[Rfam]
RNA sequence: AUUGGAGGACUAAUCAGCCGGAGUCUAAGAGUGAGACUCGGAUGACAGCAACCUCCUAAAAGAAAAGGGAUGGGGAGAGCAGUCCUUCUUACAGAAAAGCAAAGGGCUGACUGUGCCAUCCGACACUU
Numbered sequence: 001a002u003u004g005g006a007g008g009a010c011u012a013a014u015c016a017g018c019c020g021g022a023g024u025c026u027a028a029g030a031g032u033g034a035g036a037c038u039c040g041g042a043u044g045a046c047a048g049c050a051a052c053c054u055c056c057u058a059a060a061a062g063a064a065a066a067g068g069g070a071u072g073g074g075g076a077g078a079g080c081a082g083u084c085c086u087u088c089u090u091a092c093a094g095a096a097a098a099g100c101a102a103a104g105g106g107c108u109g110a111c112u113g114u115g116c117c118a119u120c121c122g123a124c125a126c127u128u
Stems, first nucleotide, its partner, number of pairs: 002059002004056005017043001019041001021039006067121003078112002080109007090101001092099001
Rfam assigns this 128-nucleotide RNA from Burhinus bistriatus to the family "Small Cajal body specific RNA 4". The match comes from Rfam's covariance-model search (95 bits). By type it is a small Cajal body RNA. The family is grouped with related families in Rfam's "SCARNA4 clan". From the family's description: scaRNAs are a specific class of small nuclear RNAs which localise to the Cajal bodies and guide the modification of RNA polymerase II transcribed spliceosomal RNAs U1, U2, U4, U5 and U12. ACA26 belongs to the H/ACA box class of guide RNAs as it has the predicted hairpin-hinge-hairpin-tail structure, conserved H/ACA-box motifs and is found associated with GAR1.